Rfam assigns this 109-nucleotide RNA to the family "SL2 RNA".
The match comes from Rfam's covariance-model search (86 bits).
It is annotated as a non-coding RNA gene.

RNA sequence: GAUUUUAUCCCAGUUACCAAGGUAUGCUGGUCGUUUUGAUCUUUCGAAAGAAAGUGUCGAACAUUUGUAAUUUUUGGAUAAGCUCUAUCGGGGAAUCCGGUGGGGCGAA
Numbered sequence: 001g002a003u004u005u006u007a008u009c010c011c012a013g014u015u016a017c018c019a020a021g022g023u024a025u026g027c028u029g030g031u032c033g034u035u036u037u038g039a040u041c042u043u044u045c046g047a048a049a050g051a052a053a054g055u056g057u058c059g060a061a062c063a064u065u066u067g068u069a070a071u072u073u074u075u076g077g078a079u080a081a082g083c084u085c086u087a088u089c090g091g092g093g094a095a096u097c098c099g100g101u102g103g104g105g106c107g108a109a
Base pairs, nucleotide, nucleotide: 007035010030013027014026015024016023017022037059038058039057040056041054042053043052044051045050084107086105088103089102090101092098093097
From the family's description: This family represents SL2 RNA. SL2 RNA is involved in trans splicing in lower eukaryotes. The literature on the family includes a 2000 paper in Mol Cell Biol by Evans and Blumenthal, "trans splicing of polycistronic Caenorhabditis elegans pre-mRNAs: analysis of the SL2 RNA". The family has 30 seed sequences and 598 matches in Rfam 15.1.